[Rfam]
RNA sequence: GCUUUCCUUGUCAUGGGGUGGCGUGGGCGGCCCAAUGAACGCGUAGUGAGGGUUCCCCUGCUGACACCAUAUCAACACAGAAGCACCACCAGAGCCCUGUGCUCUGGAACGGUGCAAUUUUUGGAAAC
Number, nucleotide and partner (000 for none) at each position: 001g000002c000003u000004u000005u000006c018007c017008u016009u015010g000011u000012c000013a000014u000015g009016g008017g007018g006019u000020g000021g061022c060023g059024u000025g000026g056027g055028c000029g000030g053031c052032c051033c050034a000035a000036u000037g000038a000039a047040c046041g000042c000043g000044u000045a000046g040047u039048g000049a000050g033051g032052g031053u030054u000055c027056c026057c000058c000059u023060g022061c021062u000063g000064a000065c000066a000067c000068c000069a000070u000071a000072u000073c000074a000075a000076c000077a000078c000079a000080g000081a000082a000083g115084c114085a113086c112087c111088a000089c000090c106091a105092g104093a103094g102095c101096c000097c000098u000099g000100u000101g095102c094103u093104c092105u091106g090107g000108a000109a000110c000111g087112g086113u085114g084115c083116a000117a000118u000119u000120u000121u000122u000123g000124g000125a000126a000127a000128c000